[Rfam]
RNA sequence: ACACCUCUGGAAAGCGACCCGCCCAGGCGGGUCCGCCGACGGGGCAAGCCGUGCGGCGAAGCUCUCAGGCACCGAUGACAGAGGGGGAGAC
Numbered sequence: 001a002c003a004c005c006u007c008u009g010g011a012a013a014g015c016g017a018c019c020c021g022c023c024c025a026g027g028c029g030g031g032u033c034c035g036c037c038g039a040c041g042g043g044g045c046a047a048g049c050c051g052u053g054c055g056g057c058g059a060a061g062c063u064c065u066c067a068g069g070c071a072c073c074g075a076u077g078a079c080a081g082a083g084g085g086g087g088a089g090a091c
Stems, first nucleotide, its partner, number of pairs: 002086001004084006016033004035070003038066002042064003048057002
The family of this 91-nucleotide RNA from Nakamurella alba is "Glycine riboswitch aptamer". It scores 52 bits against the family's covariance model. The base pairs follow the family's consensus structure.